Rfam assigns this 66-nucleotide sequence from Trichonephila clavipes to the family "mir-1 microRNA precursor family".
The source organism's lineage runs through Eukaryota, Opisthokonta, Chelicerata, Araneomorphae and Trichonephila.
Rfam links the family to the GO terms RISC complex and miRNA-mediated post-transcriptional gene silencing.
This family represents the microRNA (miRNA) mir-1 family. miRNAs are transcribed as ~70nt precursors (modelled here) and subsequently processed by the Dicer enzyme to give a ~22nt product. In this case the mature sequence comes from the 3' arm of the precursor.
For this family Rfam cites "An extensive class of small RNAs in Caenorhabditis elegans" (Lee and Ambros, Science, 2001).
RNA sequence: CUCUAUCGACCGUACUUCUUUAUAUAUAUAUAUAUAUAUAUAUAUAAAGAAGUACGGUUGAUAGAA
Numbered sequence: 001c002u003c004u005a006u007c008g009a010c011c012g013u014a015c016u017u018c019u020u021u022a023u024a025u026a027u028a029u030a031u032a033u034a035u036a037u038a039u040a041u042a043u044a045u046a047a048a049g050a051a052g053u054a055c056g057g058u059u060g061a062u063a064g065a066a
Base pairs, nucleotide, nucleotide: 007060008059009058010057011056012055013054014053015052016051017050018049019048020047021046022045023044024043025042028041029040030039